[Rfam]
RNA sequence: GGAAGCGUGUGUCAAGUGAUGGCACAACUGAACAUUGAUCGCUCGUUAAAUUAGGCAGAUCUGCUCAGUCAAGUGUUGUCACGUGGAUUUCUAGUAGCCAAGUGGUUCUCCCGAUGACCGGUGCUCUCGGUUGAGUGUCGCUCUGGGCUCCUCGAAGUACCGCGGUAAUUCCAAAUUGGAUCCCCUUUGCACUUCUAUGUAAUUUGGUCGCUUCCAUAACCCGGCACUACAGCGUAGUUUGCCAUUUUUUUA
Numbered sequence: 001g002g003a004a005g006c007g008u009g010u011g012u013c014a015a016g017u018g019a020u021g022g023c024a025c026a027a028c029u030g031a032a033c034a035u036u037g038a039u040c041g042c043u044c045g046u047u048a049a050a051u052u053a054g055g056c057a058g059a060u061c062u063g064c065u066c067a068g069u070c071a072a073g074u075g076u077u078g079u080c081a082c083g084u085g086g087a088u089u090u091c092u093a094g095u096a097g098c099c100a101a102g103u104g105g106u107u108c109u110c111c112c113g114a115u116g117a118c119c120g121g122u123g124c125u126c127u128c129g130g131u132u133g134a135g136u137g138u139c140g141c142u143c144u145g146g147g148c149u150c151c152u153c154g155a156a157g158u159a160c161c162g163c164g165g166u167a168a169u170u171c172c173a174a175a176u177u178g179g180a181u182c183c184c185c186u187u188u189g190c191a192c193u194u195c196u197a198u199g200u201a202a203u204u205u206g207g208u209c210g211c212u213u214c215c216a217u218a219a220c221c222c223g224g225c226a227c228u229a230c231a232g233c234g235u236a237g238u239u240u241g242c243c244a245u246u247u248u249u250u251u252a
Stems, first nucleotide, its partner, number of pairs: 001215007016082005028068003033063002037061004041056003223243003226238005
Rfam assigns this 252-nucleotide RNA from Apolygus lucorum to the family "Arthropod 7SK RNA". The base pairs follow the family's consensus structure, which is taken from published work. The source organism's lineage runs through Eukaryota, Arthropoda, Mandibulata, Pterygota and Apolygus. The literature on the family includes a 2008 paper in Mol Biol Evol by Gruber et al., "Arthropod 7SK RNA". It is annotated as a non-coding RNA gene.